[Rfam]
RNA sequence: AGCUAGCGCCACUUGUGGCUUCCCCGCCACCGCGCUGGCUGUUCCCCUCUGGAGGUUAUCGACCUUCACACCUAGCGGGCCGCGGAGAAAUCCGUUGGCCCGAUUUU
Dot-bracket structure: (((((.(((.....((((........)))).))).))))).........(((((((.....))))))).......((((((((((......)))).)))))).....
Rfam assigns this 107-nucleotide sequence from Rhizobium sp. NFR07 to the family "Alphaproteobacterial ar15". The match comes from Rfam's covariance-model search (88 bits). The family is grouped with related families in Rfam's "suhB sRNA clan". By type it is a small RNA. A reference for the family is del Val et al. (2007), "Identification of differentially expressed small non-coding RNAs in the legume endosymbiont Sinorhizobium meliloti by comparative genomics", Mol Microbiol. Rfam 15.1 lists 316 matches to the family in 177 species. Pairs were carried over by alignment from the consensus structure. Gene Ontology term of the family: protein binding.